[Rfam]
RNA sequence: CUCUUAUUCAGAGUGGUGGAGAGUGAAGGCUCAGUGAAACCACGGCAACCCCUUGAAAAAGGAAGGUGCCAAUCUCAGCGAGAAAUCGAUCAAUAAGAU
Number, nucleotide and partner (000 for none) at each position: 001c000002u098003c097004u096005u095006a094007u093008u092009c000010a000011g000012a000013g043014u042015g041016g040017u039018g000019g000020a000021g032022a031023g030024u000025g000026a000027a000028g076029g075030c023031u022032c021033a000034g000035u000036g000037a000038a000039a017040c016041c015042a014043c013044g070045g069046c068047a067048a000049c066050c065051c062052c061053u060054u059055g000056a000057a000058a000059a054060a053061g052062g051063a000064a000065g050066g049067u047068g046069c045070c044071a000072a000073u000074c000075u029076c028077a000078g000079c088080g087081a086082g000083a000084a000085a000086u081087c080088g079089a000090u000091c000092a008093a007094u006095a005096a004097g003098a002099u000
RNA: SAM riboswitch aptamer (S box leader)